Source information: This 115-nucleotide RNA from Jejuibacter calystegiae belongs to the Rfam family "Magnesium riboswitch aptamer (Magnesium responsive RNA element)".
RNA sequence: GUUACCGGAGGCGUUAUGGACCCCGAUCCUUAUCCCCAGUUGUGUAAUUUCUUCCGGUAAGUCAGUUCUCUUCUUUUGAUGGCUGCCUUCCGGAAGCGGAAGGCAGCGACACGCG
Numbered sequence: 001g002u003u004a005c006c007g008g009a010g011g012c013g014u015u016a017u018g019g020a021c022c023c024c025g026a027u028c029c030u031u032a033u034c035c036c037c038a039g040u041u042g043u044g045u046a047a048u049u050u051c052u053u054c055c056g057g058u059a060a061g062u063c064a065g066u067u068c069u070c071u072u073c074u075u076u077u078g079a080u081g082g083c084u085g086c087c088u089u090c091c092g093g094a095a096g097c098g099g100a101a102g103g104c105a106g107c108g109a110c111a112c113g114c115g
Stems, first nucleotide, its partner, number of pairs: 002060010018030002036042001082107010
The Magnesium sensor RNA element is a cis-regulatory element that regulates the expression of the magnesium transporter protein MgtA. It is located in the 5' UTR of this gene. The element adopts different structures depending on the presence or absence of Mg2+, this has the affect of regulating whether transcription reads through the mgtA coding region or stops within the 5' UTR. On this family, see Groisman et al., Cold Spring Harb Symp Quant Biol 2006: "A Mg2+-responding RNA that controls the expression of a Mg2+ transporter". The family's consensus secondary structure is taken from published work.